RNA sequence: GUGCAUCUUUCAAACCCCUCGGAUUCCUCUCACCGUGGUCUCCGGGACAAGAAGAGAUGCGAGAGCAAACCCGCGAGAAAUCCAAAGGGCAGAGACCCCCCCUGUCUGUGCUCUAUUUCACCUCUCGCACAGAGCU
Numbered sequence: 001g002u003g004c005a006u007c008u009u010u011c012a013a014a015c016c017c018c019u020c021g022g023a024u025u026c027c028u029c030u031c032a033c034c035g036u037g038g039u040c041u042c043c044g045g046g047a048c049a050a051g052a053a054g055a056g057a058u059g060c061g062a063g064a065g066c067a068a069a070c071c072c073g074c075g076a077g078a079a080a081u082c083c084a085a086a087g088g089g090c091a092g093a094g095a096c097c098c099c100c101c102c103u104g105u106c107u108g109u110g111c112u113c114u115a116u117u118u119c120a121c122c123u124c125u126c127g128c129a130c131a132g133a134g135c136u
Stems, first nucleotide, its partner, number of pairs: 003060004008053003018046005026038001064136003072127002075124002086114006094106002
RNA: Small nucleolar RNA SNORA14